[Rfam]
RNA sequence: AUUGAAAAAGGCAAACUGGUCGAAAGGUCAGGACGCAAAGCUAAAGGGCCUUCCUCAUUAAGAGAUGGCAGCCAGUUACCGAUA
Numbered sequence: 001a002u003u004g005a006a007a008a009a010g011g012c013a014a015a016c017u018g019g020u021c022g023a024a025a026g027g028u029c030a031g032g033a034c035g036c037a038a039a040g041c042u043a044a045a046g047g048g049c050c051u052u053c054c055u056c057a058u059u060a061a062g063a064g065a066u067g068g069c070a071g072c073c074a075g076u077u078a079c080c081g082a083u084a
Base pairs, nucleotide, nucleotide: 003081004080011036012035016031017030018029019028020027021026034071039077040076041075042074046073047072048069049068050067

A member of the RNA family "c-di-GMP-I-GGC riboswitch aptamer" from Fusibacter sp. A1, 84 nucleotides long. The base pairs follow the family's consensus structure, which is taken from published work.